[Rfam]
RNA sequence: UUUGAAGCUGUGGGAGAGACUUUCCGGUUAAUAACCUGGAAGGCACCGAAGGCGCAACCGCCCGGAAACGCUCAGGUAAACGGACUACAGCUUCGCG
Numbered sequence: 001u002u003u004g005a006a007g008c009u010g011u012g013g014g015a016g017a018g019a020c021u022u023u024c025c026g027g028u029u030a031a032u033a034a035c036c037u038g039g040a041a042g043g044c045a046c047c048g049a050a051g052g053c054g055c056a057a058c059c060g061c062c063c064g065g066a067a068a069c070g071c072u073c074a075g076g077u078a079a080a081c082g083g084a085c086u087a088c089a090g091c092u093u094c095g096c097g
Stems, first nucleotide, its partner, number of pairs: 006092008020043008045077003048073002052071003058065002
The record is a 97-nucleotide sequence from endosymbiont of Galathealinum brachiosum, which matches "Glycine riboswitch aptamer" in Rfam. Rfam 15.1 lists 9,425 matches to the family in 5,228 species.